The record is a 65-nucleotide sequence from Mytilus coruscus, which matches "Selenocysteine insertion sequence 1" in Rfam. The source organism's lineage runs through Eukaryota, Spiralia, Autobranchia, Mytilinae and Mytilus. The family's consensus secondary structure is taken from published work. It scores 37 bits against the family's covariance model. Its family is annotated with selenocysteine incorporation in the Gene Ontology. Rfam classes the family as a cis-regulatory element. About the family: The incorporation of selenocysteine into a protein sequence is directed by an in-frame UGA codon (usually a stop codon) within the coding region of the mRNA. Selenoprotein mRNAs contain a conserved secondary structure in the 3' UTR that is required for the distinction of UGA stop from UGA selenocysteine.
RNA sequence: CAUAUAUUUCAUGAUGGUAUGAUCAUAAACCCAUAACGGGAGGGAUUGUACUUGAUUUUCAUAUG
Numbered sequence: 001c002a003u004a005u006a007u008u009u010c011a012u013g014a015u016g017g018u019a020u021g022a023u024c025a026u027a028a029a030c031c032c033a034u035a036a037c038g039g040g041a042g043g044g045a046u047u048g049u050a051c052u053u054g055a056u057u058u059u060c061a062u063a064u065g
Stems, first nucleotide, its partner, number of pairs: 001065005016052009030040003